A member of the RNA family "Pseudomonas sRNA P24" from Pseudomonas asplenii, 271 nucleotides long.
The family's consensus secondary structure was predicted with RNAalifold.
It is annotated as a non-coding RNA gene.
A reference for the family is Livny et al. (2006), "Identification of 17 Pseudomonas aeruginosa sRNAs and prediction of sRNA-encoding genes in 10 diverse pathogens using the bioinformatic tool sRNAPredict2", Nucleic Acids Res.
It scores 246 bits against the family's covariance model.

RNA sequence: UUGCGCAAGUAAUGUUUAUUUGAGCAAUAUUAGCAAUCGCCUGUCGCCGCUGUCGGCCUAUUCUUAUCACCAGAAUCACUGCAACAAGAAUCACUGCCCGGACAUCCAGUCCACAGCGGCCCGCCGAAUCAGGCGUGUCGCGGCCGGCAACCCGACAGGGUUGUGCAGGCCCCCGGGCUACACACUGUCCAGAAGACGGCGUGAGGUGAGCCGGCGUCAAAAGCGCCGAGCACGGACGAAAUUCCCCAAAGGGAGGCUGACGAGCCUCCCU
Number, nucleotide and partner (000 for none) at each position: 001u012002u011003g010004c009005g000006c000007a000008a000009g004010u003011a002012a001013u000014g000015u000016u000017u000018a000019u000020u000021u000022g000023a000024g000025c000026a000027a000028u000029a000030u000031u000032a000033g000034c000035a000036a000037u000038c000039g000040c000041c000042u000043g057044u056045c055046g054047c000048c000049g000050c000051u000052g000053u000054c046055g045056g044057c043058c000059u000060a000061u000062u000063c000064u000065u000066a000067u000068c000069a000070c000071c000072a000073g000074a000075a000076u000077c000078a000079c000080u000081g000082c000083a000084a000085c000086a000087a000088g000089a000090a000091u209092c208093a207094c206095u205096g178097c177098c176099c175100g112101g111102a110103c109104a000105u000106c000107c000108a000109g103110u102111c101112c100113a000114c000115a000116g141117c140118g139119g138120c137121c000122c000123g134124c133125c132126g000127a000128a000129u000130c000131a000132g125133g124134c123135g000136u000137g120138u119139c118140g117141c116142g171143g170144c169145c168146g000147g000148c000149a162150a161151c160152c159153c158154g000155a000156c000157a000158g153159g152160g151161u150162u149163g000164u000165g000166c000167a000168g145169g144170c143171c142172c000173c000174c000175g099176g098177g097178c096179u000180a000181c203182a202183c201184a000185c199186u198187g197188u196189c195190c000191a000192g000193a000194a000195g189196a188197c187198g186199g185200c000201g183202u182203g181204a000205g095206g094207u093208g092209a091210g231211c230212c228213g227214g226215c225216g224217u223218c000219a000220a000221a000222a000223g217224c216225g215226c214227c213228g212229a000230g211231c210232a000233c000234g000235g000236a000237c000238g000239a000240a000241a000242u000243u000244c000245c000246c000247c000248a000249a000250a271251g270252g269253g268254a000255g266256g265257c264258u263259g000260a000261c000262g000263a258264g257265c256266c255267u000268c253269c252270c251271u250